[Rfam]
Nucleotides: 167
Base pairs, nucleotide, nucleotide: 020047021046022045023044024043025042027040028038056087057086058085059084060083065076066075067074068073088106089105090104091103092102093101111157112156113155114154115153116152117151125142126141127140128139129138130137131136
Number, partner (000 for none) and nucleotide at each position: 001000a002000u003000u004000u005000a006000u007000u008000g009000a010000a011000a012000a013000g014000c015000g016000c017000c018000a019000g020047g021046a022045c023044u024043g025042u026000u027040u028038g029000c030000u031000g032000a033000a034000g035000c036000a037000g038028c039000a040027g041000c042025a043024c044023a045022g046021u047020u048000g049000a050000c051000g052000a053000g054000g055000a056087g057086g058085a059084g060083g061000u062000u063000c064000a065076u066075c067074g068073a069000a070000c071000g072000u073068u074067c075066g076065g077000c078000g079000g080000a081000u082000g083060c084059c085058u086057c087056c088106c089105a090104g091103u092102u093101g094000c095000c096000g097000c098000a099000c100000u101093c102092a103091a104090c105089u106088g107000g108000a109000a110000g111157u112156u113155c114154a115153a116152a117151g118000g119000u120000u121000a122000a123000a124000c125142c126141a127140a128139a129138g130137a131136g132000g133000c134000g135000a136131c137130u138129c139128u140127u141126u142125g143000c144000u145000c146000a147000a148000a149000u150000c151117c152116u153115u154114u155113g156112a157111a158000c159000a160000a161000a162000g163000u164000g165000a166000u167000u

The family of this 167-nucleotide RNA sequence from Halobacillus halophilus is "glmS glucosamine-6-phosphate activated ribozyme aptamer". The match comes from Rfam's covariance-model search (118 bits). The literature on the family includes a 2006 paper in Biochemistry by Hampel and Tinsley, "Evidence for preorganization of the glmS ribozyme ligand binding pocket". It is annotated as a riboswitch.